[Rfam]
RNA sequence: GUCACUGACCCACCGUUAAAUGCUGUGCAUUUUAACGGGAGCUUAUUCUAGGCGCGUAAAGUGACCAGUUCACCUAAAUUUUAGGUAAACGUUAUCUAGUUCAUGACACCUUUAAGUACGUGCCAGCUUAGAGCAACUGUCGUCUAAUUUUAAACAUCUCUAAACGGGUUAAGGAAGUGAGUUAGACCGAACAAGACUAGAUAACUUAGAACGAGGCAAACAUUAC
Numbered sequence: 001g002u003c004a005c006u007g008a009c010c011c012a013c014c015g016u017u018a019a020a021u022g023c024u025g026u027g028c029a030u031u032u033u034a035a036c037g038g039g040a041g042c043u044u045a046u047u048c049u050a051g052g053c054g055c056g057u058a059a060a061g062u063g064a065c066c067a068g069u070u071c072a073c074c075u076a077a078a079u080u081u082u083a084g085g086u087a088a089a090c091g092u093u094a095u096c097u098a099g100u101u102c103a104u105g106a107c108a109c110c111u112u113u114a115a116g117u118a119c120g121u122g123c124c125a126g127c128u129u130a131g132a133g134c135a136a137c138u139g140u141c142g143u144c145u146a147a148u149u150u151u152a153a154a155c156a157u158c159u160c161u162a163a164a165c166g167g168g169u170u171a172a173g174g175a176a177g178u179g180a181g182u183u184a185g186a187c188c189g190a191a192c193a194a195g196a197c198u199a200g201a202u203a204a205c206u207u208a209g210a211a212c213g214a215g216g217c218a219a220a221c222a223u224u225a226c
Base pairs, nucleotide, nucleotide: 001065002064003063004062005061006060010041013038014037017034018033019032020031042052043051044050045049068212069211070210071209072207073085074084075083076082091205092204093203094202095201096200097199098198099197100196101195106140107139110133111132112131113130114129115128116127117126121218122217123216124215142187143186144185145184146183147182148181149180150179154178155177157175158174160173161172163170164169
RNA: HNH endonuclease-associated RNA and ORF (HEARO) RNA